[Rfam]
RNA sequence: AGCAGUGUGGCGCAGAGGUAGCGCGUUGGUCUCAUAAUCCGAAGGUCGAUAGAUCAAAACUAUCUACUGCUA
Number, nucleotide and partner (000 for none) at each position: 001a071002g070003c069004a068005g067006u066007g065008u000009g000010g024011c023012g022013c021014a000015g000016a000017g000018g000019u000020a000021g013022c012023g011024c010025g000026u042027u041028g040029g039030u000031c000032u000033c000034a000035u000036a000037a000038u000039c029040c028041g027042a026043a000044g000045g000046u000047c000048g064049a063050u062051a061052g060053a000054u000055c000056a000057a000058a000059a000060c052061u051062a050063u049064c048065u007066a006067c005068u004069g003070c002071u001072a000
tRNA: a 72-nucleotide RNA sequence from Adineta steineri. A search with the family's covariance model found it, with a score of 57 bits. Rfam classes the family as a transfer RNA. Gene Ontology term of the family: triplet codon-amino acid adaptor activity. The base pairs follow the family's consensus structure, which is taken from published work.